[Rfam]
RNA: 6S / SsrS RNA
RNA sequence: CAGAUCCUGAGGUGUGCGCCAGUGGAUGCUGUCCCUGAGCCGAUAAUUAAAAUCUUCUGAGUUGAUCUUUUAGAUGUUGGUGUGUAGGCUUACCUCGUAGUAAGAAACCUGAAAACAAUCUGGACCGACUCCCUUGGACCUACGGGUUCAAGGACUAACUCCGCAACGGCACCUUGGGGGAUCC
Numbered sequence: 001c002a003g004a005u006c007c008u009g010a011g012g013u014g015u016g017c018g019c020c021a022g023u024g025g026a027u028g029c030u031g032u033c034c035c036u037g038a039g040c041c042g043a044u045a046a047u048u049a050a051a052a053u054c055u056u057c058u059g060a061g062u063u064g065a066u067c068u069u070u071u072a073g074a075u076g077u078u079g080g081u082g083u084g085u086a087g088g089c090u091u092a093c094c095u096c097g098u099a100g101u102a103a104g105a106a107a108c109c110u111g112a113a114a115a116c117a118a119u120c121u122g123g124a125c126c127g128a129c130u131c132c133c134u135u136g137g138a139c140c141u142a143c144g145g146g147u148u149c150a151a152g153g154a155c156u157a158a159c160u161c162c163g164c165a166a167c168g169g170c171a172c173c174u175u176g177g178g179g180g181a182u183c184c
Stems, first nucleotide, its partner, number of pairs: 002182001005179011017168002031155004036150006059131003063127002066124003073119001075117004084108002089104005